[Rfam]
Rfam assigns this 113-nucleotide sequence from Rhizobium etli to the family "Y RNA-like". It is annotated as a small RNA. NCBI's taxonomy places the organism under Bacteria, Pseudomonadati, Rhizobiaceae, Rhizobium, Rhizobium etli. A reference for the family is Chen et al. (2014), "Bacterial noncoding Y RNAs are widespread and mimic tRNAs", RNA. Rfam describes the family as follows. In Deinococcus radiodurans Rsr is tethered via Y RNA to the exoribonuclease PNPase and channels single-stranded RNA into the PNPase cavity. Rsr and Y RNA enhance degradation of structured RNAs by PNPase. This role could be conserved, as Rsr and ncRNAs called YrlA and YrlB (Y RNA like) also associate with PNPase in an evolutionary distant bacterium Salmonella Typhimurium. Pairs were carried over by alignment from the consensus structure, which is taken from published work.
RNA sequence: AUGGCGAAUGCAUGGGGAACUACAUCUGUGUCGCGAGUUCGAUUCUCGCCAGGGCCUGGUCCUGUAGCUCAGUUGGUAGAGCAAGCUGUUCCCCGGACACUUGUCGUCAUGAC
Numbered sequence: 001a002u003g004g005c006g007a008a009u010g011c012a013u014g015g016g017g018a019a020c021u022a023c024a025u026c027u028g029u030g031u032c033g034c035g036a037g038u039u040c041g042a043u044u045c046u047c048g049c050c051a052g053g054g055c056c057u058g059g060u061c062c063u064g065u066a067g068c069u070c071a072g073u074u075g076g077u078a079g080a081g082c083a084a085g086c087u088g089u090u091c092c093c094c095g096g097a098c099a100c101u102u103g104u105c106g107u108c109a110u111g112a113c
Stems, first nucleotide, its partner, number of pairs: 002109006013095007027085001033049005040076001050064006067082004